A member of the RNA family "small nucleolar RNA snoR117" from Hordeum vulgare, 78 nucleotides long.
Pairs were carried over by alignment from the consensus structure, which was predicted with RNAalifold.
For this family Rfam cites "Mining small RNA sequencing data: a new approach to identify small nucleolar RNAs in Arabidopsis" (Chen and Wu, Nucleic Acids Res, 2009).
The organism belongs to Hordeum vulgare, within Eukaryota.
RNA sequence: GGCCUGUGAUGUAAUCAAUUUGUCCGUACCAUCUGACAUCGUUGAUGAUCCACAUUUGCUAAUGUAUCUCUGAGGCCC
Numbered sequence: 001g002g003c004c005u006g007u008g009a010u011g012u013a014a015u016c017a018a019u020u021u022g023u024c025c026g027u028a029c030c031a032u033c034u035g036a037c038a039u040c041g042u043u044g045a046u047g048a049u050c051c052a053c054a055u056u057u058g059c060u061a062a063u064g065u066a067u068c069u070c071u072g073a074g075g076c077c078c
Base pairs, nucleotide, nucleotide: 001077002076003075004074